[Rfam]
Rfam assigns this 78-nucleotide sequence from Microcaecilia unicolor to the family "Mammalian CPEB3 ribozyme". Lineage of the source: Eukaryota > Opisthokonta > Gnathostomata > Tetrapoda > Microcaecilia. A search with the family's covariance model found it, with a score of 46 bits. The mammalian CPEB3 ribozyme is a self cleaving RNA located in the second intron of the CPEB3 gene which belongs to a family of genes regulating messenger RNA polyadenylation.
RNA sequence: AAGGUGGUCUCAGGGGCCACCAUAGAAGUAUUCACAUUGCGGCUCCUCUAAGGUUCCUAUGAACCAAUAAAUUCUACC
Numbered sequence: 001a002a003g004g005u006g007g008u009c010u011c012a013g014g015g016g017c018c019a020c021c022a023u024a025g026a027a028g029u030a031u032u033c034a035c036a037u038u039g040c041g042g043c044u045c046c047u048c049u050a051a052g053g054u055u056c057c058u059a060u061g062a063a064c065c066a067a068u069a070a071a072u073u074c075u076a077c078c
Stems, first nucleotide, its partner, number of pairs: 013046006023076005028040003052065005
Dot-bracket structure: ............((((((....[[[[[(((.......))))))))).....(((((....)))))......]]]]]..